[Rfam]
RNA sequence: GAUUUAUAAAGAAGUGCUGAGAGAACAGGCUCAAAGAAGCACUAGCAACCGCCACAAAAUGUGGAAAGGUGCUAAAUCCUGCUCCCAACAAGGUGUUGAGGAGAACUAUAAAAC
Numbered sequence: 001g002a003u004u005u006a007u008a009a010a011g012a013a014g015u016g017c018u019g020a021g022a023g024a025a026c027a028g029g030c031u032c033a034a035a036g037a038a039g040c041a042c043u044a045g046c047a048a049c050c051g052c053c054a055c056a057a058a059a060u061g062u063g064g065a066a067a068g069g070u071g072c073u074a075a076a077u078c079c080u081g082c083u084c085c086c087a088a089c090a091a092g093g094u095g096u097u098g099a100g101g102a103g104a105a106c107u108a109u110a111a112a113a114c
Stems, first nucleotide, its partner, number of pairs: 001114001003112006013043005021032003026081004044073004049069002052064003082103004

Record summary
Shown here is a 114-nucleotide RNA from Chryseotalea sanaruensis, a member of the family "SAM riboswitch aptamer (S box leader)". A search with the family's covariance model found it, with a score of 75 bits. The organism belongs to Chryseotalea, within Bacteria. Pairs were carried over by alignment from the consensus structure, which is taken from published work.